[Rfam]
RNA sequence: CGUCACCUUGCUGGAGAGAGGCGGCUGCCGCAGUGCAGUCGUCCACCGAAGGAGCAAGCCCCCGCAAAGGGUGAAUCUCUCAGGUAAAGCGGACAGCAUGGCCCGA
Numbered sequence: 001c002g003u004c005a006c007c008u009u010g011c012u013g014g015a016g017a018g019a020g021g022c023g024g025c026u027g028c029c030g031c032a033g034u035g036c037a038g039u040c041g042u043c044c045a046c047c048g049a050a051g052g053a054g055c056a057a058g059c060c061c062c063c064g065c066a067a068a069g070g071g072u073g074a075a076u077c078u079c080u081c082a083g084g085u086a087a088a089g090c091g092g093a094c095a096g097c098a099u100g101g102c103c104c105g106a
Base pairs, nucleotide, nucleotide: 006101007100009098010097011096012095013094020043021042022041023040024039025038026037027036028035045085046084047083048081049080052079053078054077058072059071060070061069
A member of the RNA family "Glycine riboswitch aptamer" from Ramlibacter monticola, 106 nucleotides long. The organism belongs to Ramlibacter, within Bacteria. Rfam describes the family as follows. This family represents the bacterial glycine riboswitch. The match comes from Rfam's covariance-model search (61 bits). Rfam links the family to the GO term glycine biosynthetic process.